[Rfam]
RNA sequence: AUAACAGCUAUUCGGGGAAGGUAAGAACCUUCAACCAGGUUCGCACCGAGCGCAGUGAGACAACGACGCAAAGCGGCGGCCCGCAGGGUGAGCGAAUAAUCCUUCCCCAUCACUA
Numbered sequence: 001a002u003a004a005c006a007g008c009u010a011u012u013c014g015g016g017g018a019a020g021g022u023a024a025g026a027a028c029c030u031u032c033a034a035c036c037a038g039g040u041u042c043g044c045a046c047c048g049a050g051c052g053c054a055g056u057g058a059g060a061c062a063a064c065g066a067c068g069c070a071a072a073g074c075g076g077c078g079g080c081c082c083g084c085a086g087g088g089u090g091a092g093c094g095a096a097u098a099a100u101c102c103u104u105c106c107c108c109a110u111c112a113c114u115a
Stems, first nucleotide, its partner, number of pairs: 015107007022099001032090002035088002040085001042083002047057002064078002067075003
About this RNA
The family of this 115-nucleotide sequence from Yersinia frederiksenii is "RtT RNA". The sequence is in the family's curated seed alignment. NCBI's taxonomy places the organism under Bacteria, Pseudomonadati, Gammaproteobacteria, Yersinia, Yersinia frederiksenii. Rfam describes the family as follows. This family represents a bacterial cis-regulatory element known as RtT RNA. The exact function of RtT is unknown although it is thought that it may be involved in changing the cellular response in relation to amino acid starvation.